Overview: Shown here is a 70-nucleotide RNA, a member of the family "L31-Corynebacteriaceae ribosomal protein leader".
RNA sequence: ACUCGGGCACGAUCCGUACCGGCAUAGCAGCCCAGUGUGCGGAACCGACCCGUAGUCCAACCCUGAGGGA
Numbered sequence: 001a002c003u004c005g006g007g008c009a010c011g012a013u014c015c016g017u018a019c020c021g022g023c024a025u026a027g028c029a030g031c032c033c034a035g036u037g038u039g040c041g042g043a044a045c046c047g048a049c050c051c052g053u054a055g056u057c058c059a060a061c062c063c064u065g066a067g068g069g070a
Stems, first nucleotide, its partner, number of pairs: 001056003004052004013043007021032002

Rfam's curators put it in the seed alignment. It is annotated as a cis-regulatory leader. Pairs were carried over by alignment from the consensus structure, which is taken from published work.